[Rfam]
RNA sequence: GUCCGAUACGGCUACGGCUUUAUCGGCGAGUCCUUGUUAUACUUCAAGGGAGAGGUAAUCCUUCACCGAGCACUAAAACGGUGUAAACAUUAGGGACAACC
Numbered sequence: 001g002u003c004c005g006a007u008a009c010g011g012c013u014a015c016g017g018c019u020u021u022a023u024c025g026g027c028g029a030g031u032c033c034u035u036g037u038u039a040u041a042c043u044u045c046a047a048g049g050g051a052g053a054g055g056u057a058a059u060c061c062u063u064c065a066c067c068g069a070g071c072a073c074u075a076a077a078a079c080g081g082u083g084u085a086a087a088c089a090u091u092a093g094g095g096a097c098a099a100c101c
Stems, first nucleotide, its partner, number of pairs: 003026006010019003064083004

This 101-nucleotide RNA sequence from Lachnospiraceae bacterium 7_1_58FAA belongs to the Rfam family "RT-9 RNA". Taxonomically the source falls in Lachnospiraceae (Bacteria, Bacillati, Bacillota, Clostridia).